[Rfam]
RNA sequence: UCCGAAAGGUAGUCAUUUGUAUAUAUGGAACAUAUAUACAGAGUUACACUUUUCGAAUAUCAGAGCUUCUUCUCGUUGGAGUUGUUCAAUUUAUGGGCGAUUACCUCUAAUCUGUAAGCAACAAUU
Number, nucleotide and partner (000 for none) at each position: 001u000002c000003c055004g054005a053006a052007a051008g050009g049010u048011a000012g047013u046014c000015a000016u042017u041018u040019g039020u038021a037022u036023a035024u000025a033026u032027g000028g000029a000030a000031c000032a026033u025034a000035u023036a022037u021038a020039c019040a018041g017042a016043g000044u000045u000046a013047c012048a010049c009050u008051u007052u006053u005054c004055g003056a000057a000058u000059a000060u000061c000062a000063g000064a000065g119066c118067u117068u116069c000070u000071u000072c114073u000074c000075g000076u110077u109078g108079g107080a106081g105082u100083u099084g098085u097086u096087c095088a094089a000090u000091u000092u000093a000094u088095g087096g086097g085098c084099g083100a082101u000102u000103a000104c000105c081106u080107c079108u078109a077110a076111u000112c000113u000114g072115u000116a068117a067118g066119c065120a000121a000122c000123a000124a000125u000126u000

Caenorhabditis snoRNA ceN81: a 126-nucleotide sequence from Caenorhabditis latens. Rfam links the family to the GO terms RNA processing and nucleolus.